[Rfam]
RNA sequence: AUGACAAGUGACCGUCAUAUCUGAAGGAAGUCGGCGGCAAACCUCCGCUCCGAGGAACACGAACCUCAUAUAAGGCUAAGUAAUACUGGAUGAGUUUGCAACACAAAACAAAGUCCUUACUGUCAAAGGUAUUAUAGAGUAAAUGAGGCGGGGACAUGGAGGGAAAGUCUGUACC
Numbered sequence: 001a002u003g004a005c006a007a008g009u010g011a012c013c014g015u016c017a018u019a020u021c022u023g024a025a026g027g028a029a030g031u032c033g034g035c036g037g038c039a040a041a042c043c044u045c046c047g048c049u050c051c052g053a054g055g056a057a058c059a060c061g062a063a064c065c066u067c068a069u070a071u072a073a074g075g076c077u078a079a080g081u082a083a084u085a086c087u088g089g090a091u092g093a094g095u096u097u098g099c100a101a102c103a104c105a106a107a108a109c110a111a112a113g114u115c116c117u118u119a120c121u122g123u124c125a126a127a128g129g130u131a132u133u134a135u136a137g138a139g140u141a142a143a144u145g146a147g148g149c150g151g152g153g154a155c156a157u158g159g160a161g162g163g164a165a166a167g168u169c170u171g172u173a174c175c
Stems, first nucleotide, its partner, number of pairs: 001018005030175001033172001037168002042162006048153005064148006075140003081134006088116004094109004
Dot-bracket structure: (((((........)))))...........(..(...((...(((((((((((...........((((((.....(((...((((((.((((..((((........))))...))))............))))))...)))..)))))))))))...))))))....))...)..)
Group II catalytic intron D1-D4-3: a 175-nucleotide sequence from Amphibacillus xylanus. The organism belongs to Amphibacillus xylanus, within Bacteria. It scores 130 bits against the family's covariance model.